[Rfam]
RNA sequence: GUCGCGGACCGGGCCCCUCUGGCGCGCGCUUCCUGAGCGCGCGUGAUGUCGGACCGCAUCG
Dot-bracket structure: .....((.((((.........((((((((.......))))))))....)))).))......

This 61-nucleotide RNA from Erythrobacter sp. QSSC1-22B belongs to the Rfam family "terC RNA".